[Rfam]
Nucleotides: 076
Base pairs, nucleotide, nucleotide: 001075002074003073004072005071006070007069010028011027012026013025030046031045032044033043034042052068053067054066055065056064
Number, partner (000 for none) and nucleotide at each position: 001075g002074g003073c004072c005071c006070c007069g008000u009000g010028g011027c012026c013025u014000a015000g016000c017000c018000u019000g020000g021000a022000c023000u024000a025013g026012g027011g028010c029000g030046c031045c032044g033043g034042c035000c036000u037000g038000c039000g040000g041000a042034g043033c044032c045031g046030g047000a048000g049000g050000u051000c052068c053067c054066g055065g056064g057000u058000u059000c060000a061000a062000a063000u064056c065055c066054c067053g068052g069007c070006g071005g072004g073003g074002c075001c076000g
The record is a 76-nucleotide sequence from Ignicoccus hospitalis, which matches "tRNA" in Rfam.
A search with the family's covariance model found it, with a score of 61 bits.
NCBI's taxonomy places the organism under Archaea, Thermoprotei, Desulfurococcales, Ignicoccus, Ignicoccus hospitalis.